[Rfam]
RNA sequence: GAGUCCGAACUGGUUUUUUUUGUUUGUUUUUUUUUUUUUAUUAAACACAGUUUGUCACCUGAGAAGUGUUUCUGGCUAGAGAGAGUGCUGGAAACCACAAAGAGGCAUUGCAGCUUUCUCUGCUGGAUUCUCAAGGAGCUGGCUCGUGGCCUUGCUUUAUGUAGCUGCCUCGAGCCUUUAUAACCAUUCUUCUCUUCCUUUCGGGAGAGCCAGAGAGAGGUAACGCUCCGUGGU
Numbered sequence: 001g002a003g004u005c006c007g008a009a010c011u012g013g014u015u016u017u018u019u020u021u022g023u024u025u026g027u028u029u030u031u032u033u034u035u036u037u038u039u040a041u042u043a044a045a046c047a048c049a050g051u052u053u054g055u056c057a058c059c060u061g062a063g064a065a066g067u068g069u070u071u072c073u074g075g076c077u078a079g080a081g082a083g084a085g086u087g088c089u090g091g092a093a094a095c096c097a098c099a100a101a102g103a104g105g106c107a108u109u110g111c112a113g114c115u116u117u118c119u120c121u122g123c124u125g126g127a128u129u130c131u132c133a134a135g136g137a138g139c140u141g142g143c144u145c146g147u148g149g150c151c152u153u154g155c156u157u158u159a160u161g162u163a164g165c166u167g168c169c170u171c172g173a174g175c176c177u178u179u180a181u182a183a184c185c186a187u188u189c190u191u192c193u194c195u196u197c198c199u200u201u202c203g204g205g206a207g208a209g210c211c212a213g214a215g216a217g218a219g220g221u222a223a224c225g226c227u228c229c230g231u232g233g234u
Base pairs, nucleotide, nucleotide: 001060003058004057006054007053008052009051010050011049069083070082072081073080094234095233096232097231098230113226114225116223117222119220120219121218123217124216129186141176142175143174144173148169149168150167152164153163154162155161190212192209193208194207195206196205197204198203
A member of the RNA family "Small nucleolar RNA U3" from Jaculus jaculus, 234 nucleotides long. About the family: Small nucleolar RNAs (snoRNAs) are involved in the processing and modification of rRNA in the nucleolus. There are two main classes of snoRNAs: the box C/D class, and the box H/ACA class. U3 snoRNA is a member of the box C/D class. Indeed, the box C/D element is a subset of the six short sequence elements found in all U3 snoRNAs, namely boxes A, A', B, C, C', and D. The U3 snoRNA secondary structure is characterised by a small 5' domain (with boxes A and A'), and a larger 3' domain (with boxes B, C, C', and D), the two domains being linked by a single-stranded hinge. A reference for the family is Marz and Stadler (2010), "Comparative analysis of eukaryotic U3 snoRNA", RNA Biol. Rfam links the family to the GO terms nucleolus and RNA processing. It scores 42 bits against the family's covariance model. Pairs were carried over by alignment from the consensus structure, which is taken from published work. Clan: U3 clan.